[Rfam]
RNA: Small nucleolar RNA SNORA57
RNA sequence: CCUCCAGUUCUUGGCAUGCAUGGUAUUGUUUGGUUCUGUGCAUGUGACUUGUAUGGAGGCAGAAUAAGUGCAAACCCUGGUGUUCGGUCUUCGGUACCAGCAGUUUUCCCUCUGCUGGUUCUAGCUUUGCUCACCAGCACAUAU
Numbered sequence: 001c002c003u004c005c006a007g008u009u010c011u012u013g014g015c016a017u018g019c020a021u022g023g024u025a026u027u028g029u030u031u032g033g034u035u036c037u038g039u040g041c042a043u044g045u046g047a048c049u050u051g052u053a054u055g056g057a058g059g060c061a062g063a064a065u066a067a068g069u070g071c072a073a074a075c076c077c078u079g080g081u082g083u084u085c086g087g088u089c090u091u092c093g094g095u096a097c098c099a100g101c102a103g104u105u106u107u108c109c110c111u112c113u114g115c116u117g118g119u120u121c122u123a124g125c126u127u128u129g130c131u132c133a134c135c136a137g138c139a140c141a142u143a144u
Stems, first nucleotide, its partner, number of pairs: 001059005015044006022037002025034001078136005097118007